[Rfam]
RNA sequence: AUUCAUCUUCGGGGCAGGGUGAAAUUCCCGACCGGCGGUGAUGAGGCGCUUGGCCUCUCAGCCCGCGAGCCGCAAGGCAGGAUCCGGUGCGAGUCCGGAGCCGACAGUAUAGUCUGGAUGGGAGAAGAUGAAG
Numbered sequence: 001a002u003u004c005a006u007c008u009u010c011g012g013g014g015c016a017g018g019g020u021g022a023a024a025u026u027c028c029c030g031a032c033c034g035g036c037g038g039u040g041a042u043g044a045g046g047c048g049c050u051u052g053g054c055c056u057c058u059c060a061g062c063c064c065g066c067g068a069g070c071c072g073c074a075a076g077g078c079a080g081g082a083u084c085c086g087g088u089g090c091g092a093g094u095c096c097g098g099a100g101c102c103g104a105c106a107g108u109a110u111a112g113u114c115u116g117g118a119u120g121g122g123a124g125a126a127g128a129u130g131a132a133g
Stems, first nucleotide, its partner, number of pairs: 003131008017029003031113002033103002035066004061101002071077001083099005105116003